RNA sequence: UAACAAUUCAUACUUCUCCCCUUAAACCGAGACCUCUAGGGAGAUAAAAUUACGUCUCUAAUACCUGCCUCUGAGGGUGAGACAGGAAUAUUUAAUUCA
Numbered sequence: 001u002a003a004c005a006a007u008u009c010a011u012a013c014u015u016c017u018c019c020c021c022u023u024a025a026a027c028c029g030a031g032a033c034c035u036c037u038a039g040g041g042a043g044a045u046a047a048a049a050u051u052a053c054g055u056c057u058c059u060a061a062u063a064c065c066u067g068c069c070u071c072u073g074a075g076g077g078u079g080a081g082a083c084a085g086g087a088a089u090a091u092u093u094a095a096u097u098c099a
Stems, first nucleotide, its partner, number of pairs: 016043005029058005064086004069081002
Rfam assigns this 99-nucleotide RNA sequence from Greenvirus ssm4 to the family "PhotoRC-II RNA". Pairs were carried over by alignment from the consensus structure, which is taken from published work. NCBI's taxonomy places the organism under Viruses, Duplodnaviria, Uroviricota, Pantevenvirales, Greenvirus ssm4. The family's RNA type in Rfam is cis-regulatory element. A search with the family's covariance model found it, with a score of 72 bits.